[Rfam]
RNA sequence: AUGUUGGAAAUCAAGUUACUGAUUUCUAAACGCCCUAAUUUCCCCUGAGUAGCGUAAAGAAUUGCUGUGUGUAGUCUUUGCCCAUCCCCUGUGAUGGGCUUUUUUUUGC
Numbered sequence: 001a002u003g004u005u006g007g008a009a010a011u012c013a014a015g016u017u018a019c020u021g022a023u024u025u026c027u028a029a030a031c032g033c034c035c036u037a038a039u040u041u042c043c044c045c046u047g048a049g050u051a052g053c054g055u056a057a058a059g060a061a062u063u064g065c066u067g068u069g070u071g072u073a074g075u076c077u078u079u080g081c082c083c084a085u086c087c088c089c090u091g092u093g094a095u096g097g098g099c100u101u102u103u104u105u106u107u108g109c
Stems, first nucleotide, its partner, number of pairs: 002018001031047002063071003080099007
Dot-bracket structure: .(...............)............((.............))...............(((...)))........(((((((......)))))))..........

A member of the RNA family "RprA RNA" from Pantoea ananatis, 109 nucleotides long.
A search with the family's covariance model found it, with a score of 71 bits.
A reference for the family is Majdalani et al. (2001), "Regulation of RpoS by a novel small RNA: the characterization of RprA", Mol Microbiol.
Translational regulation of the stationary phase sigma factor RpoS is mediated by the formation of a double-stranded RNA stem-loop structure in the upstream region of the rpoS messenger RNA, occluding the translation initiation site.